Rfam assigns this 366-nucleotide RNA sequence from Mediterranea sp. An20 to the family "Bacterial RNase P class A". The family's RNA type in Rfam is ribozyme. It scores 234 bits against the family's covariance model.
RNA sequence: GCAGUCGGCCGGUCUGUCGCUCGCAUUCCGAUGCGGGAGGAAAGUCCGGGCAACACAGAGCAUCCCACUUCCUAACAGAAAGCUGUCCGCGAGGGUAGAGUAACGCAGAAGAAAAGAACCGCCGCUGCGCCUUUGGGUUCCAGCGGUAAGGGUGAGAAGGUGGGGUAAGAGCCCACCGGCCUUGUGGCGACACAAGGGCCGUGCGUCUUGGGAGUUGUAAGGUCAUGUAAACCGGCGUAAAGAGAGUUGCUCGCUCCAUGUCGGAGGGUAGACCGCUAAAGCCGUAUGGCGACAUACGGACGAGAUAAAUGACAGACACCCCACUCCGGUGGGGCACAGAACCCGGCUUACAGGCCGACUGCUUUC
Dot-bracket structure: ((((((((((((((((((.(((((((....)))))))....[[[.[[[[[((((...[[[[.((((((((.(.....).)))(.((((....)))).)((..(((((...........(((((((((.(.........).)))))))..)).......((((((.......)))))).((((((((....))))))).)..))))))))))))))))...((((.......(((((.......((((.]]]]))))...)))))......)))).......(((((((....)))))))...........)))))))........................]]]]]]]].).))))))))))....